RNA: Archaeal large subunit ribosomal RNA, nucleotides 537 to 634
Organism: Candidatus Mancarchaeum acidiphilum
RNA sequence: GAUAAGGCGCGAAAGGAAUGAAGUGCACAGAAGCUAUGUCCGAGAGAACUAUGCGAAGUGUAACUGAACAGUGUCUUGUCAUUCUUCUCGAAGUAAGA
Numbered sequence: 001g002a003u004a005a006g007g008c009g010c011g012a013a014a015g016g017a018a019u020g021a022a023g024u025g026c027a028c029a030g031a032a033g034c035u036a037u038g039u040c041c042g043a044g045a046g047a048a049c050u051a052u053g054c055g056a057a058g059u060g061u062a063a064c065u066g067a068a069c070a071g072u073g074u075c076u077u078g079u080c081a082u083u084c085u086u087c088u089c090g091a092a093g094u095a096a097g098a
Base pairs, nucleotide, nucleotide: 001080002079003078004077005076006075007074008073009072010071015069024062025061026060027059028058033054038049039048041046083098084097085096086095